[Rfam]
RNA sequence: GCCAGUGUGGCAGUGUGGUUAGCUGGUUGUGGGCUUUGACAACAGCCACUAUCUCCACUGCCAUACAGGC
Numbered sequence: 001g002c003c004a005g006u007g008u009g010g011c012a013g014u015g016u017g018g019u020u021a022g023c024u025g026g027u028u029g030u031g032g033g034c035u036u037u038g039a040c041a042a043c044a045g046c047c048a049c050u051a052u053c054u055c056c057a058c059u060g061c062c063a064u065a066c067a068g069g070c
Stems, first nucleotide, its partner, number of pairs: 002069002005066002009062002012059004017054002020051003024048007
RNA: mir-34 microRNA precursor family
Organism: Thrips palmi